Rfam assigns this 85-nucleotide sequence from Coffea canephora to the family "Small nucleolar RNA R12".
Rfam's curators write: snoR12 is a C/D box small nucleolar RNA, which acts as a methylation guide for 25S ribosomal RNA in plants. snoR12 has been alternatively named snoZ44 in Arabidopsis and snoZ131 in rice.
It scores 60 bits against the family's covariance model.
The base pairs follow the family's consensus structure, which was predicted with PFOLD.
RNA sequence: GUGGGAAUGAUGAAAAAAUCAGACGGAUUCCCAUUGAUUACCUUCCGUAAGAAUGAUAAAAAACAACCACCUAUUUCUGACCUCC
Numbered sequence: 001g002u003g004g005g006a007a008u009g010a011u012g013a014a015a016a017a018a019u020c021a022g023a024c025g026g027a028u029u030c031c032c033a034u035u036g037a038u039u040a041c042c043u044u045c046c047g048u049a050a051g052a053a054u055g056a057u058a059a060a061a062a063a064c065a066a067c068c069a070c071c072u073a074u075u076u077c078u079g080a081c082c083u084c085c
Base pairs, nucleotide, nucleotide: 001085003083004082005081